[Rfam]
RNA sequence: CAUAAAUGGGGGCUCCUUCGAGGACAAAGAAAGCAUUCGGACGUCUUUUCGCACAUUGAAGUAGUCAUCCUUUGGACUGAAGGGAGCCCCUAAUUCUU
Numbered sequence: 001c002a003u004a005a006a007u008g009g010g011g012g013c014u015c016c017u018u019c020g021a022g023g024a025c026a027a028a029g030a031a032a033g034c035a036u037u038c039g040g041a042c043g044u045c046u047u048u049u050c051g052c053a054c055a056u057u058g059a060a061g062u063a064g065u066c067a068u069c070c071u072u073u074g075g076a077c078u079g080a081a082g083g084g085a086g087c088c089c090c091u092a093a094u095u096c097u098u
Stems, first nucleotide, its partner, number of pairs: 007092012022078002025075001027073003
The family of this 98-nucleotide sequence from Amborella trichopoda is "MIR319 microRNA precursor family". The family has 11 seed sequences and 168 matches in Rfam 15.1. Pairs were carried over by alignment from the consensus structure, which was predicted with RNAalifold.